About this RNA: Rfam assigns this 76-nucleotide RNA from Anguilla anguilla to the family "mir-218 microRNA precursor family". Pairs were carried over by alignment from the consensus structure, which was predicted with RNAalifold. Its family is annotated with RISC complex and miRNA-mediated post-transcriptional gene silencing in the Gene Ontology. It scores 75 bits against the family's covariance model.
RNA sequence: CAGGACUCCAUUGUGCUUGAUCUAACCAUGCGUUUCCGCUCUCGAGCAUGGUUUUGCCAAGCACUUUGGAGCCCUG
Numbered sequence: 001c002a003g004g005a006c007u008c009c010a011u012u013g014u015g016c017u018u019g020a021u022c023u024a025a026c027c028a029u030g031c032g033u034u035u036c037c038g039c040u041c042u043c044g045a046g047c048a049u050g051g052u053u054u055u056g057c058c059a060a061g062c063a064c065u066u067u068g069g070a071g072c073c074c075u076g
Stems, first nucleotide, its partner, number of pairs: 001076004006071004013064007024053008